[Rfam]
RNA sequence: GUCCAUGAUGAUUUGUCCACGGUUUGAGAUUAGUUAGCUUCAAGACCCUGUUUUCAGGGAGAACCUACUUGAGGCUGCUAAAUCAUAAUAUGAACUUACUGGACCGUUCUGAGAU
Numbered sequence: 001g002u003c004c005a006u007g008a009u010g011a012u013u014u015g016u017c018c019a020c021g022g023u024u025u026g027a028g029a030u031u032a033g034u035u036a037g038c039u040u041c042a043a044g045a046c047c048c049u050g051u052u053u054u055c056a057g058g059g060a061g062a063a064c065c066u067a068c069u070u071g072a073g074g075c076u077g078c079u080a081a082a083u084c085a086u087a088a089u090a091u092g093a094a095c096u097u098a099c100u101g102g103a104c105c106g107u108u109c110u111g112a113g114a115u
Stems, first nucleotide, its partner, number of pairs: 001115003046059005
RNA: Small nucleolar RNA Z278
Organism: Carpinus fangiana